[Rfam]
The family of this 354-nucleotide RNA from Treponema pallidum is "transfer-messenger RNA". It is one of the family's seed sequences. The literature on the family includes a 1996 paper in RNA by Williams and Bartel, "Phylogenetic analysis of tmRNA secondary structure". The family is grouped with related families in Rfam's "tRNA clan".
RNA sequence: GGGGAUGACUAGGUUUCGACUAGGGAUGUGGGGUGUUGCGCUGCAGGUGGAGUGUCGAUCUCCUGAUUCGGCGCCUUUAUAACUGCCAAUUCUGACAGUUUCGACUACGCGCUCGCCGCGUAAUCGCGGGCCUGUGUUUGCGCUGCUCUGAGCGAACAUAUCGGCCCGACGCCAAACGGAGCUUGCUCUUACGUUGUGCACGGCGGACGUAGGGGGACUUUUGUCUGUGCUAAGACUCUGGCGCGUGCGGUGCAGGCCUAGCAGAGUCCGACAAACGCAGUACGCACCGCUAAACCUGUAGGCGCGCAGCACUCGCUCUUUAGGACGGGGGUUCGAUUCCCCCCAUCUCCACAA
Numbered sequence: 001g002g003g004g005a006u007g008a009c010u011a012g013g014u015u016u017c018g019a020c021u022a023g024g025g026a027u028g029u030g031g032g033g034u035g036u037u038g039c040g041c042u043g044c045a046g047g048u049g050g051a052g053u054g055u056c057g058a059u060c061u062c063c064u065g066a067u068u069c070g071g072c073g074c075c076u077u078u079a080u081a082a083c084u085g086c087c088a089a090u091u092c093u094g095a096c097a098g099u100u101u102c103g104a105c106u107a108c109g110c111g112c113u114c115g116c117c118g119c120g121u122a123a124u125c126g127c128g129g130g131c132c133u134g135u136g137u138u139u140g141c142g143c144u145g146c147u148c149u150g151a152g153c154g155a156a157c158a159u160a161u162c163g164g165c166c167c168g169a170c171g172c173c174a175a176a177c178g179g180a181g182c183u184u185g186c187u188c189u190u191a192c193g194u195u196g197u198g199c200a201c202g203g204c205g206g207a208c209g210u211a212g213g214g215g216g217a218c219u220u221u222u223g224u225c226u227g228u229g230c231u232a233a234g235a236c237u238c239u240g241g242c243g244c245g246u247g248c249g250g251u252g253c254a255g256g257c258c259u260a261g262c263a264g265a266g267u268c269c270g271a272c273a274a275a276c277g278c279a280g281u282a283c284g285c286a287c288c289g290c291u292a293a294a295c296c297u298g299u300a301g302g303c304g305c306g307c308a309g310c311a312c313u314c315g316c317u318c319u320u321u322a323g324g325a326c327g328g329g330g331g332u333u334c335g336a337u338u339c340c341c342c343c344c345a346u347c348u349c350c351a352c353a354a
Stems, first nucleotide, its partner, number of pairs: 001350007020323007032313010042302001044298005049063004054072005103125002106122006127168005133160008145182006186215006198230006231271001234268004243259001245257001247290003252285002327343005